[Rfam]
RNA sequence: AGAUGGGGUAGAGGUUGCGAACUGUCAAAAGUACCUAAGAAGAGUUUGGGUAAAACUAAGAUUCUUAGGGAAAGGGAAGUUCGCCGAAGCUUUGAUCUUCUACCCAGAGUUCAAAGUUGGGACUGUACUUAAUAUGUACAGGACUGUCUUCAGGUAGAUUUCCCAUCUAUCUGAGGUGUGCUCUCCAUUUU
Numbered sequence: 001a002g003a004u005g006g007g008g009u010a011g012a013g014g015u016u017g018c019g020a021a022c023u024g025u026c027a028a029a030a031g032u033a034c035c036u037a038a039g040a041a042g043a044g045u046u047u048g049g050g051u052a053a054a055a056c057u058a059a060g061a062u063u064c065u066u067a068g069g070g071a072a073a074g075g076g077a078a079g080u081u082c083g084c085c086g087a088a089g090c091u092u093u094g095a096u097c098u099u100c101u102a103c104c105c106a107g108a109g110u111u112c113a114a115a116g117u118u119g120g121g122a123c124u125g126u127a128c129u130u131a132a133u134a135u136g137u138a139c140a141g142g143a144c145u146g147u148c149u150u151c152a153g154g155u156a157g158a159u160u161u162c163c164c165a166u167c168u169a170u171c172u173g174a175g176g177u178g179u180g181c182u183c184u185c186c187a188u189u190u191u
Base pairs, nucleotide, nucleotide: 006186007185008184010182011181017084018083019082020081021080022079023078025077026076034069035068036067037066038065039064040063041062088118089117090116091115092114093113094112095111097109098108099107119145120144123141124140125139126138127137128136147176148175149174151173152172153171154170155169156168157167
The family of this 191-nucleotide sequence from Natranaerobius trueperi is "Lysine riboswitch aptamer". Rfam describes the family as follows. Riboswitches are metabolite binding domains within certain messenger RNAs that serve as precision sensors for their corresponding targets.